A member of the RNA family "Ribosomal protein L10 leader" from Romboutsia weinsteinii, 129 nucleotides long. The source organism's lineage runs through Bacteria, Bacillota, Clostridia, Peptostreptococcales and Romboutsia. This family is a putative r-protein leader autoregulatory structure found in B. subtilis and other low-GC Gram-positive bacteria.
RNA sequence: UAAAAAUGAAUAGAUUUGCCGUAGACAGUAGGUGCGAAAGCUUAAACAUCCUACCGAGGUUUUAGAUAAAUUGAAAUUACUAAAGCUUUUGUUGUCUACUUUUGACACGGAAGCUUUUUUAAAUGAAAU
Numbered sequence: 001u002a003a004a005a006a007u008g009a010a011u012a013g014a015u016u017u018g019c020c021g022u023a024g025a026c027a028g029u030a031g032g033u034g035c036g037a038a039a040g041c042u043u044a045a046a047c048a049u050c051c052u053a054c055c056g057a058g059g060u061u062u063u064a065g066a067u068a069a070a071u072u073g074a075a076a077u078u079a080c081u082a083a084a085g086c087u088u089u090u091g092u093u094g095u096c097u098a099c100u101u102u103u104g105a106c107a108c109g110g111a112a113g114c115u116u117u118u119u120u121a122a123a124u125g126a127a128a129u
Base pairs, nucleotide, nucleotide: 028054029053030052031051032050034041035040085114086113087112088111089110090109091108092107